Shown here is a 97-nucleotide sequence from Equus asinus, a member of the family "mir-9058 microRNA precursor family".
RNA sequence: GUGGUUGCCAGGCGGGUGCUCUCUACUAGUGCUGUGUAGAGGCUUUCACUGAGGCUCCUGUGAGACUGUAGAGUUUCCCCCUGGGCCAUGGAGCUGG
Numbered sequence: 001g002u003g004g005u006u007g008c009c010a011g012g013c014g015g016g017u018g019c020u021c022u023c024u025a026c027u028a029g030u031g032c033u034g035u036g037u038a039g040a041g042g043c044u045u046u047c048a049c050u051g052a053g054g055c056u057c058c059u060g061u062g063a064g065a066c067u068g069u070a071g072a073g074u075u076u077c078c079c080c081c082u083g084g085g086c087c088a089u090g091g092a093g094c095u096g097g
Stems, first nucleotide, its partner, number of pairs: 002096005007086003010082002014080003018076001021073006028067002032064002036061004041056006